Annotation: Shown here is a 61-nucleotide RNA sequence from Ictalurus punctatus, a member of the family "mir-1 microRNA precursor family". About the family: This family represents the microRNA (miRNA) mir-1 family. miRNAs are transcribed as ~70nt precursors (modelled here) and subsequently processed by the Dicer enzyme to give a ~22nt product. In this case the mature sequence comes from the 3' arm of the precursor. The extents of the hairpin precursors are not generally known and are estimated based on hairpin prediction. The products are thought to have regulatory roles through complementarity to mRNA. The involvement of Dicer in miRNA processing suggests a relationship with the phenomenon of RNA interference. miRNAs are numbered based on the sequence of the mature RNA. This family also contains the mir-206 from human, which appears to be related to mir-1. On this family, see Lee and Ambros, Science 2001: "An extensive class of small RNAs in Caenorhabditis elegans". The family's consensus secondary structure was predicted with RNAalifold. Gene Ontology terms of the family: RISC complex and miRNA-mediated post-transcriptional gene silencing.
RNA sequence: ACAUACUUCUUUAUAUGCCCAUAUGAACAAGAGCAGCUAUGGAAUGUAAAGAAGUAUGUAU
Numbered sequence: 001a002c003a004u005a006c007u008u009c010u011u012u013a014u015a016u017g018c019c020c021a022u023a024u025g026a027a028c029a030a031g032a033g034c035a036g037c038u039a040u041g042g043a044a045u046g047u048a049a050a051g052a053a054g055u056a057u058g059u060a061u
Stems, first nucleotide, its partner, number of pairs: 001059016019042005